[Rfam]
RNA sequence: GAACAUUUGCUCUUUUAGUAUUUCUCCAGUAGGUAUCCUCAAGGAGAAUGCCCCG
Numbered sequence: 001g002a003a004c005a006u007u008u009g010c011u012c013u014u015u016u017a018g019u020a021u022u023u024c025u026c027c028a029g030u031a032g033g034u035a036u037c038c039u040c041a042a043g044g045a046g047a048a049u050g051c052c053c054c055g
Stems, first nucleotide, its partner, number of pairs: 032052005038046003
Notes
Shown here is a 55-nucleotide RNA from Salmo salar, a member of the family "U7 small nuclear RNA". The match comes from Rfam's covariance-model search (40 bits). The organism belongs to Salmo, within Eukaryota. The base pairs follow the family's consensus structure, which was predicted with PFOLD.